Shown here is an 84-nucleotide sequence from Populus deltoides, a member of the family "Small nucleolar RNA Z122".
The family's consensus secondary structure was predicted with PFOLD.
A search with the family's covariance model found it, with a score of 62 bits.
NCBI's taxonomy places the organism under Eukaryota, Streptophytina, Pentapetalae, Salicaceae, Populus.
By type it is a C/D-box small nucleolar RNA.
[Rfam]
RNA sequence: GUUGGGAAAUGAUGAAAGUUAUGACAAAUUAUUAAAGGAGCUAUCGAUGCUGAAUAAUCAUUUGCACGUCAGUCUGAUCCUGAA
Numbered sequence: 001g002u003u004g005g006g007a008a009a010u011g012a013u014g015a016a017a018g019u020u021a022u023g024a025c026a027a028a029u030u031a032u033u034a035a036a037g038g039a040g041c042u043a044u045c046g047a048u049g050c051u052g053a054a055u056a057a058u059c060a061u062u063u064g065c066a067c068g069u070c071a072g073u074c075u076g077a078u079c080c081u082g083a084a
Stems, first nucleotide, its partner, number of pairs: 002083006